RNA sequence: GUGCGGUGACAAAAAACAACGUUUUUUGAACGUUGGCUUUGCCAACGGCCCCGAUAGGGGUGAACAAACGAGUAAGCGAGUUUGUGAAUAAAAUUUGCGAU
Numbered sequence: 001g002u003g004c005g006g007u008g009a010c011a012a013a014a015a016a017c018a019a020c021g022u023u024u025u026u027u028g029a030a031c032g033u034u035g036g037c038u039u040u041g042c043c044a045a046c047g048g049c050c051c052c053g054a055u056a057g058g059g060g061u062g063a064a065c066a067a068a069c070g071a072g073u074a075a076g077c078g079a080g081u082u083u084g085u086g087a088a089u090a091a092a093a094u095u096u097g098c099g100a101u
Stems, first nucleotide, its partner, number of pairs: 010028008031047007048061005064085006072077001089097003
This 101-nucleotide RNA from Rodentibacter trehalosifermentans belongs to the Rfam family "Aggregatibacter sRNA 22". The match comes from Rfam's covariance-model search (82 bits). Rfam 15.1 lists 101 matches to the family in 35 species. The family's consensus secondary structure was predicted with RNAfold. Rfam classes the family as a small RNA.